Description
Alphaproteobacteria transfer-messenger RNA: a 354-nucleotide RNA from Rhodobacter aestuarii. Its family is annotated with RNA catabolic process in the Gene Ontology. About the family: Bacterial tmRNA, also known as 10Sa RNA or SsrA, is named for its dual tRNA and mRNA-like properties. Its role is to liberate the mRNA from a stalled ribosome. To accomplish this part of the tmRNA is used as a reading frame that ends in a translation stop signal. The broken mRNA is replaced in the ribosome by the tmRNA and translation of the tmRNA leads to addition of a proteolysis tag to the incomplete protein enabling recognition by a protease. By type it is a non-coding RNA gene. The organism belongs to Rhodobacter, within Bacteria. It scores 298 bits against the family's covariance model. The literature on the family includes a 2002 paper in Nucleic Acids Res by Laslett et al., "BRUCE: a program for the detection of transfer-messenger RNA genes in nucleotide sequences".
[Rfam]
Nucleotides: 354
Base pairs, nucleotide, nucleotide: 040057041056042055043054044053045052046051061191062190063189064188065187071184072183074179075178076177085169086168089166090165091164095111096110097109098108099107112151113150114149115148116147117146118145192207193206194205195204198217199216201215202214203213320335321334322333323332326351327350328349329348330347331346
Number, partner (000 for none) and nucleotide at each position: 001000c002000c003000c004000c005000u006000u007000g008000c009000a010000g011000c012000c013000c014000g015000c016000c017000g018000c019000c020000g021000c022000a023000g024000g025000c026000c027000c028000u029000a030000a031000a032000u033000u034000g035000g036000g037000c038000u039000u040057g041056u042055u043054c044053g045052g046051g047000g048000u049000a050000a051046c052045u053044c054043g055042g056041a057040c058000u059000a060000u061191g062190g063189g064188c065187a066000u067000a068000a069000a070000c071184g072183c073000g074179c075178a076177c077000g078000a079000a080000a081000u082000a083000a084000g085169c086168g087000g088000a089166u090165c091164g092000g093000a094000c095111c096110c097109g098108g099107g100000g101000g102000c103000g104000g105000u106000a107099c108098c109097c110096g111095g112151c113150g114149g115148c116147u117146c118145c119000a120000c121000c122000a123000a124000a125000a126000u127000c128000c129000c130000u131000c132000g133000u134000u135000g136000g137000g138000g139000g140000c141000a142000c143000a144000u145118g146117g147116g148115g149114c150113c151112g152000a153000a154000a155000u156000a157000g158000g159000a160000u161000c162000g163000a164091c165090g166089a167000a168086c169085g170000u171000g172000u173000a174000a175000a176000g177076g178075u179074g180000a181000u182000g183072g184071c185000u186000u187065u188064g189063u190062c191061c192207c193206g194205g195204u196000g197000a198217g199216c200000g201215a202214c203213c204195a205194c206193c207192g208000u209000u210000a211000u212000c213203g214202g215201u216199g217198c218000a219000a220000a221000u222000u223000g224000u225000a226000c227000a228000g229000u230000u231000g232000c233000c234000a235000a236000c237000g238000a239000c240000a241000a242000c243000c244000g245000u246000g247000c248000u249000c250000c251000g252000g253000u254000g255000g256000c257000u258000c259000u260000g261000g262000c263000u264000g265000c266000g267000u268000a269000a270000g271000c272000a273000g274000c275000u276000c277000g278000g279000g280000u281000a282000a283000c284000c285000g286000a287000a288000a289000c290000u291000u292000a293000a294000g295000u296000c297000c298000u299000u300000a301000c302000g303000c304000u305000u306000a307000g308000c309000c310000g311000c312000u313000u314000a315000a316000g317000g318000c319000g320335g321334g322333g323332c324000u325000c326351g327350c328349a329348g330347g331346u332323g333322c334321c335320u336000g337000g338000c339000a340000a341000c342000a343000g344000a345000a346331a347330c348329c349328u350327g351326c352000a353000c354000u